[Rfam]
RNA sequence: GUGAGGUGCAGGACUUGGCUUGCUUUGUGAACAGAUCUGGGAAAGUCCGUGUUCACAGUGGCUAAGUUCCGCUCUUCAG
Numbered sequence: 001g002u003g004a005g006g007u008g009c010a011g012g013a014c015u016u017g018g019c020u021u022g023c024u025u026u027g028u029g030a031a032c033a034g035a036u037c038u039g040g041g042a043a044a045g046u047c048c049g050u051g052u053u054c055a056c057a058g059u060g061g062c063u064a065a066g067u068u069c070c071g072c073u074c075u076u077c078a079g
Stems, first nucleotide, its partner, number of pairs: 011069010027056007
Shown here is a 79-nucleotide RNA from Conger conger, a member of the family "mir-27 microRNA precursor family".
NCBI's taxonomy places the organism under Eukaryota, Euteleostomi, Neopterygii, Teleostei, Conger.
The match comes from Rfam's covariance-model search (66 bits).
The base pairs follow the family's consensus structure, which was predicted with RNAalifold.